[Rfam]
Nucleotides: 106
Base pairs, nucleotide, nucleotide: 003104004103005102006101007100008099013041015040016039017038021031022030023029025082027080028079042074043073044072045071047070048069050065051064052063078098083095084094085093086092087091
Number, partner (000 for none) and nucleotide at each position: 001000u002000u003104c004103u005102u006101a007100u008099c009000c010000a011000g012000a013041g014000u015040g016039g017038u018000g019000a020000a021031g022030g023029g024000a025082c026000u027080g028079g029023c030022c031021c032000u033000a034000u035000g036000a037000a038017a039016c040015c041013c042074a043073g044072c045071a046000a047070c048069c049000a050065g051064u052063a053000u054000a055000u056000u057000u058000u059000u060000a061000u062000a063052u064051a065050c066000a067000u068000u069048g070047g071045u072044g073043c074042u075000a076000a077000a078098u079028c080027c081000u082025g083095c084094a085093g086092u087091a088000u089000u090000a091087u092086a093085c094084u095083g096000a097000a098078a099008g100007a101006u102005g103004a104003g105000u106000c

Background: Rfam assigns this 106-nucleotide RNA from Clostridioides difficile to the family "SAM riboswitch aptamer (S box leader)". Pairs were carried over by alignment from the consensus structure, which is taken from published work. The family has 457 seed sequences and 9,625 matches in Rfam 15.1.